Background:
Bacterial RNase P class A: a 358-nucleotide RNA sequence from Hydrogenophaga crocea. It is annotated as a ribozyme. The family's consensus secondary structure is taken from published work.
[Rfam]
RNA sequence: GAAGCGCGCCAGACCGCCGCUGGCACAAGACCCGAAAGGGUGUGCUGGAGGAACGUCCGGACUGCACAGGGCAGCGUAGGAGGUAACACCUCUCCACCGACCAGCCGCCGGGUUCGCCCGGCGGCCCUAAGGUGAGGAUCAGAGCAACAGAGACGAGUCGGCCCGGGGCGACCCGGGCCGGGUGAAACGGGCAAUCUCUACGCGCAGCAACACCAAAUAGGCCAGCGUCGAUGUGGCUCCGCGGAGCUGGCGGGUAGGUGGCAUCGAGCCGGGUGGGCGACCCCCGGCCCAGAAGAAUGGCGGUCACGGUCGGGGCGACCCGGCCGCACAGAAUCCGGCUUAUCGGCGCGCUUCACAC
Number, nucleotide and partner (000 for none) at each position: 001g354002a353003a352004g351005c350006g349007c348008g347009c346010c345011a343012g305013a304014c303015c302016g301017c300018c299019g000020c048021u047022g046023g045024c044025a043026c042027a041028a000029g000030a000031c000032c000033c000034g000035a000036a000037a000038g000039g000040g000041u027042g026043u025044g024045c023046u022047g021048g020049a000050g000051g000052a000053a341054c000055g339056u000057c338058c337059g336060g335061a334062c207063u206064g205065c204066a000067c000068a000069g239070g238071g237072c236073a000074g203075c202076g201077u200078a199079g093080g092081a091082g090083g089084u000085a000086a000087c000088a000089c083090c082091u081092c080093u079094c136095c134096a133097c132098c131099g000100a000101c000102c000103a000104g000105c000106c000107g000108c000109c000110g000111g000112g000113u000114u000115c000116g000117c000118c000119c000120g000121g000122c000123g000124g000125c000126c000127c000128u000129a000130a000131g098132g097133u096134g095135a000136g094137g198138a197139u000140c000141a000142g196143a195144g192145c191146a000147a000148c000149a000150g000151a000152g000153a000154c000155g000156a000157g000158u000159c181160g000161g178162c177163c176164c175165g174166g173167g172168g000169c000170g000171a000172c167173c166174c165175g164176g163177g162178c161179c000180g000181g159182g000183u000184g000185a000186a000187a000188c000189g000190g000191g145192c144193a000194a000195u143196c142197u138198c137199u078200a077201c076202g075203c074204g065205c064206a063207g062208c000209a000210a000211c260212a259213c258214c257215a000216a000217a000218u000219a000220g000221g251222c250223c249224a248225g247226c246227g000228u000229c000230g000231a000232u243233g242234u241235g240236g072237c071238u070239c069240c235241g234242c233243g232244g000245a000246g226247c225248u224249g223250g222251c221252g000253g000254g000255u000256a000257g214258g213259u212260g211261g000262c000263a000264u000265c000266g000267a000268g288269c287270c286271g285272g284273g283274u000275g282276g281277g000278c000279g000280a000281c276282c275283c273284c272285c271286g270287g269288c268289c000290c000291a000292g000293a000294a000295g000296a000297a000298u000299g018300g017301c016302g015303g014304u013305c012306a000307c000308g000309g000310u000311c000312g000313g000314g000315g000316c000317g000318a000319c000320c000321c000322g000323g000324c000325c000326g000327c000328a000329c000330a000331g000332a000333a000334u061335c060336c059337g058338g057339c055340u000341u053342a000343u011344c000345g010346g009347c008348g007349c006350g005351c004352u003353u002354c001355a000356c000357a000358c000